This 125-nucleotide sequence from Caballeronia glathei belongs to the Rfam family "Burkholderia sRNA Bp1_Cand684_SIPHT". Rfam 15.1 lists 176 matches to the family in 44 species. The source organism's lineage runs through Bacteria, Pseudomonadota, Betaproteobacteria, Burkholderiales and Caballeronia. On this family, see Khoo et al., BMC Genomics 2012: "Computational discovery and RT-PCR validation of novel Burkholderia conserved and Burkholderia pseudomallei unique sRNAs". Pairs were carried over by alignment from the consensus structure, which was predicted with RNAalifold.
RNA sequence: AAGAAAGUGACUGCCGCCCCGCACAGGGGCGAAGCUAAUAGACCGACAAGAAAACAAGUUCCAUAGAAGCGCAAGCGCAUCAAACGGUUCAAAAAACACUAAACCCAAGCGCCAGCGACAUCCCA
Numbered sequence: 001a002a003g004a005a006a007g008u009g010a011c012u013g014c015c016g017c018c019c020c021g022c023a024c025a026g027g028g029g030c031g032a033a034g035c036u037a038a039u040a041g042a043c044c045g046a047c048a049a050g051a052a053a054a055c056a057a058g059u060u061c062c063a064u065a066g067a068a069g070c071g072c073a074a075g076c077g078c079a080u081c082a083a084a085c086g087g088u089u090c091a092a093a094a095a096a097c098a099c100u101a102a103a104c105c106c107a108a109g110c111g112c113c114a115g116c117g118a119c120a121u122c123c124c125a
Stems, first nucleotide, its partner, number of pairs: 011087003015031006058078001109116002
Dot-bracket structure: ..........(((.((((((.....))))))..........................(...................)......))).....................((....)).........